[Rfam]
RNA sequence: AGCAUAUGAAAACUAAAACCUCAUAUAAUCUUGGGAAUAUGGCCCAAAAGUUUCUACCCAACAACCGUAAAUUGUUGGACUAUGAGGGAAAGUAAUCGACAA
Dot-bracket structure: ..................(((((((...(.(((((.......))))).)........(((((((.......)))))))..)))))))...............
RNA: Purine riboswitch aptamer
Organism: Aeribacillus pallidus